[Rfam]
RNA sequence: GGAAUCGAAAGUAAAUAACCGUAGACAGCGGGUGGUAACGAGGCAGAUGCUUUAGAAACCUUAAUUUCCCGCCGAGGUACAAUGUAAAUAUAUUGGCCUUGCUGUCUAUGACGACGACAAGGUCUUUUUAUGGCGUA
Numbered sequence: 001g002g003a004a005u006c007g008a009a010a011g012u013a014a015a016u017a018a019c020c021g022u023a024g025a026c027a028g029c030g031g032g033u034g035g036u037a038a039c040g041a042g043g044c045a046g047a048u049g050c051u052u053u054a055g056a057a058a059c060c061u062u063a064a065u066u067u068c069c070c071g072c073c074g075a076g077g078u079a080c081a082a083u084g085u086a087a088a089u090a091u092a093u094u095g096g097c098c099u100u101g102c103u104g105u106c107u108a109u110g111a112c113g114a115c116g117a118c119a120a121g122g123u124c125u126u127u128u129u130a131u132g133g134c135g136u137a
Stems, first nucleotide, its partner, number of pairs: 028072005034060003097122005103116004
Rfam assigns this 137-nucleotide sequence from Lentihominibacter faecis to the family "Ribosomal protein L10 leader".
Pairs were carried over by alignment from the consensus structure, which was predicted with CMfinder.
Lineage of the source: Bacteria > Bacillati > Clostridia > Anaerovoracaceae > Lentihominibacter.
This family is a putative r-protein leader autoregulatory structure found in B. subtilis and other low-GC Gram-positive bacteria.